Shown here is an 81-nucleotide RNA from Anguilla anguilla, a member of the family "mir-26 microRNA precursor family". Its family is annotated with RISC complex and miRNA-mediated post-transcriptional gene silencing in the Gene Ontology. The match comes from Rfam's covariance-model search (89 bits).
RNA sequence: CUGCGACCCAGUUCAAGUAAUCCAGGAUAGGCUCUGUUCAUCCAGGUUGGCCUAUUCUUGAUUACUUGCUCUGGGGGGCAG
Numbered sequence: 001c002u003g004c005g006a007c008c009c010a011g012u013u014c015a016a017g018u019a020a021u022c023c024a025g026g027a028u029a030g031g032c033u034c035u036g037u038u039c040a041u042c043c044a045g046g047u048u049g050g051c052c053u054a055u056u057c058u059u060g061a062u063u064a065c066u067u068g069c070u071c072u073g074g075g076g077g078g079c080a081g
Base pairs, nucleotide, nucleotide: 002080003079004078007075008074009073010072011071014068015067016066017065018064019063020062021061022060024058025057026056027055028054029053030052031051032050033049
Dot-bracket structure: .(((..(((((..(((((((((.((((((((((...............)))))))))).)))))))))..)))))..))).